[Rfam]
RNA sequence: UGGAGGACUGAGAAGGUAAGACAGUGAAACUUUAUGCUGUAUCUUACUGGUUAUAGCCUCCAAAAUUAUAACAGUGCAAUAGCAACUCAUGUUCCCCUCCUGACAUGAGGGCCAGCAGUAC
Numbered sequence: 001u002g003g004a005g006g007a008c009u010g011a012g013a014a015g016g017u018a019a020g021a022c023a024g025u026g027a028a029a030c031u032u033u034a035u036g037c038u039g040u041a042u043c044u045u046a047c048u049g050g051u052u053a054u055a056g057c058c059u060c061c062a063a064a065a066u067u068a069u070a071a072c073a074g075u076g077c078a079a080u081a082g083c084a085a086c087u088c089a090u091g092u093u094c095c096c097c098u099c100c101u102g103a104c105a106u107g108a109g110g111g112c113c114a115g116c117a118g119u120a121c
Base pairs, nucleotide, nucleotide: 002061003060004059005058006057015048016047017046018045019042021040022039023038024037025036082112083111086109087108089106090105091104092103093102
Description: Rfam assigns this 121-nucleotide RNA from Notiomystis cincta to the family "Small nucleolar RNA SNORA47". Taxonomically the source falls in Notiomystis (Eukaryota, Sarcopterygii, Archosauria, Notiomystidae). The match comes from Rfam's covariance-model search (79 bits).